[Rfam]
RNA: Pseudomonas sRNA P10
RNA sequence: UUUGGGCGACAGCCAUGUCUGCCCGCUGCCGGGGCACGGCACCACCGCCAUUGUUACUGCCUCCGACGACGU
Numbered sequence: 001u002u003u004g005g006g007c008g009a010c011a012g013c014c015a016u017g018u019c020u021g022c023c024c025g026c027u028g029c030c031g032g033g034g035c036a037c038g039g040c041a042c043c044a045c046c047g048c049c050a051u052u053g054u055u056a057c058u059g060c061c062u063c064c065g066a067c068g069a070c071g072u
Base pairs, nucleotide, nucleotide: 007071008070017040018039019038020036021035023033024032051069052068053067054066055065